[Rfam]
RNA: L31-Firmicutes ribosomal protein leader
RNA sequence: CUAUGGUUUUUUUAACCAUGGCGGAAGGAG
Numbered sequence: 001c002u003a004u005g006g007u008u009u010u011u012u013u014a015a016c017c018a019u020g021g022c023g024g025a026a027g028g029a030g
Base pairs, nucleotide, nucleotide: 001021002020003019004018005017006016007015008014